[Rfam]
RNA sequence: CGGAGGUGCAUUGUAGUCGCAUUGUCUGUAUACUUUAUUCUCUGCGGCAAUACAACUGCAGUGCAAGCUCCG
Numbered sequence: 001c002g003g004a005g006g007u008g009c010a011u012u013g014u015a016g017u018c019g020c021a022u023u024g025u026c027u028g029u030a031u032a033c034u035u036u037a038u039u040c041u042c043u044g045c046g047g048c049a050a051u052a053c054a055a056c057u058g059c060a061g062u063g064c065a066a067g068c069u070c071c072g
Stems, first nucleotide, its partner, number of pairs: 001072004006068001007065010019053001021051006
RNA: mir-33 microRNA precursor family
Organism: Drosophila navojoa